c-di-AMP riboswitch aptamer (ydaO/yuaA leader): a 138-nucleotide RNA sequence from Microbispora sp. ATCC PTA-5024. The source organism's lineage runs through Bacteria, Bacillati, Actinomycetes, Streptosporangiaceae and Microbispora. The match comes from Rfam's covariance-model search (80 bits). Its family is annotated with regulation of gene expression and cyclic-di-AMP binding in the Gene Ontology.
RNA sequence: AGCGCGCGGCCGCCGAAUCCGCGUCUCGCGGAGCCGGGGACCCACCUCUUCCGGGGUGAAUCGGAGCGCGACCGCGCCCCGUAGGGCACUUCCUGCCCGAACCCGUCAGCUAACCCGGUAGGCGGCAUGGAAGAAGGA
Dot-bracket structure: ..........((((...(((((.....)))))((((((....(.........)(((.....(((..............)))..((((.......))))...))).........)))))).))))..............